[Rfam]
RNA sequence: CCUUCCAAGGAGCGUUGCAGCGGCGGCGCGCGGGACCCCCUGGUCCGCGACCCGCCGUCAGGCUUGGAAGGCGCCUUCUCGCAGAACCUGCCCGGAAGGCCCGGUUGCAACGACGCUCACCUGAC
Number, nucleotide and partner (000 for none) at each position: 001c000002c070003u069004u068005c067006c066007a065008a064009g000010g000011a000012g000013c000014g000015u000016u000017g000018c000019a000020g000021c057022g056023g055024c054025g053026g052027c000028g000029c000030g000031c000032g000033g000034g000035a000036c000037c000038c000039c000040c000041u000042g000043g000044u000045c000046c000047g000048c000049g000050a000051c000052c026053c025054g024055c023056c022057g021058u000059c000060a000061g000062g000063c000064u008065u007066g006067g005068a004069a003070g002071g000072c000073g000074c000075c000076u000077u000078c000079u000080c000081g000082c000083a000084g000085a000086a000087c000088c000089u000090g000091c000092c000093c000094g000095g000096a000097a000098g000099g000100c000101c000102c000103g000104g000105u000106u000107g000108c000109a000110a000111c000112g000113a000114c000115g000116c000117u000118c000119a000120c000121c000122u000123g000124a000125c000
The family of this 125-nucleotide RNA sequence from Variovorax sp. PDC80 is "SAH (S-adenosyl-L-homocysteine) riboswitch aptamer". On this family, see Wang et al., Mol Cell 2008: "Riboswitches that sense S-adenosylhomocysteine and activate genes involved in coenzyme recycling". Pairs were carried over by alignment from the consensus structure, which is taken from published work.